[Rfam]
RNA sequence: GUUAGCAAGUGAUGAUCUGAUCUUAUCCUACACACCGAAUCUUCUGUGUCGAUUAUUGAUCUCCGCUUAUUGUCUGAUGUUAUG
Numbered sequence: 001g002u003u004a005g006c007a008a009g010u011g012a013u014g015a016u017c018u019g020a021u022c023u024u025a026u027c028c029u030a031c032a033c034a035c036c037g038a039a040u041c042u043u044c045u046g047u048g049u050c051g052a053u054u055a056u057u058g059a060u061c062u063c064c065g066c067u068u069a070u071u072g073u074c075u076g077a078u079g080u081u082a083u084g
Stems, first nucleotide, its partner, number of pairs: 003082005
Dot-bracket structure: ..(((((......................................................................)))))..

The record is an 84-nucleotide sequence from Zostera marina, which matches "Small nucleolar RNA R16" in Rfam. Pairs were carried over by alignment from the consensus structure, which was predicted with PFOLD. Its family is annotated with nucleolus and RNA processing in the Gene Ontology. Rfam 15.1 lists 884 matches to the family in 222 species. The source organism's lineage runs through Eukaryota, Streptophytina, Tracheophyta, Mesangiospermae and Zostera.